Rfam assigns this 97-nucleotide sequence from Equus caballus to the family "mir-9058 microRNA precursor family". Rfam 15.1 lists 2,090 matches to the family in 3 species.
[Rfam]
RNA sequence: GUGGCUGCGGGAUGGGUGUUCUCUACUAGUGUUGUGCAGAGGCUUUCGCUGAGGCUGCUGUGAGCCUGUAGGCUUUCCACCUAGGCUAUGGAGCCAG
Numbered sequence: 001g002u003g004g005c006u007g008c009g010g011g012a013u014g015g016g017u018g019u020u021c022u023c024u025a026c027u028a029g030u031g032u033u034g035u036g037c038a039g040a041g042g043c044u045u046u047c048g049c050u051g052a053g054g055c056u057g058c059u060g061u062g063a064g065c066c067u068g069u070a071g072g073c074u075u076u077c078c079a080c081c082u083a084g085g086c087u088a089u090g091g092a093g094c095c096a097g
Stems, first nucleotide, its partner, number of pairs: 002096005007086002010082002014080001016078001018076001022072005028067002031065003036061004041056006
The family's consensus secondary structure was predicted with RNAalifold.